Rfam assigns this 91-nucleotide RNA from Jatropha curcas to the family "mir-160 microRNA precursor family". On this family, see Rhoades et al., Cell 2002: "Prediction of plant microRNA targets". The source organism's lineage runs through Eukaryota, Euphyllophyta, Euphorbiaceae, Crotonoideae and Jatropha. Its family is annotated with RISC complex and miRNA-mediated post-transcriptional gene silencing in the Gene Ontology. The match comes from Rfam's covariance-model search (80 bits).
RNA sequence: UUAUGCCUGGCUCCCUGUAUGCCACAAGCUAUAGCUCAAUCUUUUUCUGUUGAUUGGCUGUUGCCGGUGGCGUGCGAGGAGCCAAGCAUAC
Numbered sequence: 001u002u003a004u005g006c007c008u009g010g011c012u013c014c015c016u017g018u019a020u021g022c023c024a025c026a027a028g029c030u031a032u033a034g035c036u037c038a039a040u041c042u043u044u045u046u047c048u049g050u051u052g053a054u055u056g057g058c059u060g061u062u063g064c065c066g067g068u069g070g071c072g073u074g075c076g077a078g079g080a081g082c083c084a085a086g087c088a089u090a091c
Base pairs, nucleotide, nucleotide: 002090003089004088005087006086008084009083010082011081012080013079014078016076017075018074019073020072021071022070023069024068028064029063